[Rfam]
RNA sequence: GCUGGCAUAAUGAUGAUAAAACUCUUUGCCGUUUACCCAGCUGAAUGCUGUGAUGACUGAUGUUCUAUCUGAUGUGCCAGC
Dot-bracket structure: (((((((...................................................................)))))))
Background: Rfam assigns this 81-nucleotide RNA from Psophia crepitans to the family "Small nucleolar RNA SNORD87". Lineage of the source: Eukaryota > Chordata > Teleostomi > Aves > Psophia. Rfam links the family to the GO terms RNA processing and nucleolus.